Annotation: This 72-nucleotide sequence from a Verrucomicrobiaceae bacterium belongs to the Rfam family "tRNA". Rfam links the family to the GO term triplet codon-amino acid adaptor activity. Rfam classes the family as a transfer RNA. NCBI's taxonomy places the organism under Bacteria, Pseudomonadati, Verrucomicrobiota, Verrucomicrobiia, Verrucomicrobiaceae.

[Rfam]
RNA sequence: GCUUCCGUCGUCUAAUGGAUAAGGCUCUGGUUUCCGGAACCAGCGAUCUAGGUUCGAUUCCUAGCGGGAGUA
Numbered sequence: 001g002c003u004u005c006c007g008u009c010g011u012c013u014a015a016u017g018g019a020u021a022a023g024g025c026u027c028u029g030g031u032u033u034c035c036g037g038a039a040c041c042a043g044c045g046a047u048c049u050a051g052g053u054u055c056g057a058u059u060c061c062u063a064g065c066g067g068g069a070g071u072a
Stems, first nucleotide, its partner, number of pairs: 001071007010025004027043005048064005